[Rfam]
RNA sequence: AGCUGUGUUGUCAGUGAUGGAUUCUUUCAGGAGCUGAAUAUAAAUGAUUUCAGCCAACAUUUCGUCACUACCACUGAGACAACAUGCU
Numbered sequence: 001a002g003c004u005g006u007g008u009u010g011u012c013a014g015u016g017a018u019g020g021a022u023u024c025u026u027u028c029a030g031g032a033g034c035u036g037a038a039u040a041u042a043a044a045u046g047a048u049u050u051c052a053g054c055c056a057a058c059a060u061u062u063c064g065u066c067a068c069u070a071c072c073a074c075u076g077a078g079a080c081a082a083c084a085u086g087c088u
Base pairs, nucleotide, nucleotide: 001088002087003086005085006084007083008082009081010080011079012078

This 88-nucleotide sequence from Nothoprocta perdicaria belongs to the Rfam family "Small nucleolar RNA SNORD70". Lineage of the source: Eukaryota > Craniata > Sauropsida > Coelurosauria > Nothoprocta. A reference for the family is Huttenhofer et al. (2001), "RNomics: an experimental approach that identifies 201 candidates for novel, small, non-messenger RNAs in mouse", EMBO J. A search with the family's covariance model found it, with a score of 78 bits. The family's RNA type in Rfam is C/D-box small nucleolar RNA. The pairing is the family consensus, mapped onto this sequence.